The family of this 100-nucleotide RNA from Tumebacillus flagellatus is "Purine riboswitch aptamer".
RNA sequence: UGUCGAACACGGAAUUGCUCUCGUAUAAAGCCGGGGAUAUGGCCCGGCAGUUUCUACCGGCUCCCGUAAAGUGCCGACUACGAGGUUCGACAUCGUGCAU
Numbered sequence: 001u002g003u004c005g006a007a008c009a010c011g012g013a014a015u016u017g018c019u020c021u022c023g024u025a026u027a028a029a030g031c032c033g034g035g036g037a038u039a040u041g042g043c044c045c046g047g048c049a050g051u052u053u054c055u056a057c058c059g060g061c062u063c064c065c066g067u068a069a070a071g072u073g074c075c076g077a078c079u080a081c082g083a084g085g086u087u088c089g090a091c092a093u094c095g096u097g098c099a100u
Base pairs, nucleotide, nucleotide: 019085020084021083022082023081024080025079030048031047032046033045034044035043058076059075060074061073063071
Rfam's curators write: Riboswitches are metabolite binding domains within certain messenger RNAs that serve as precision sensors for their corresponding targets.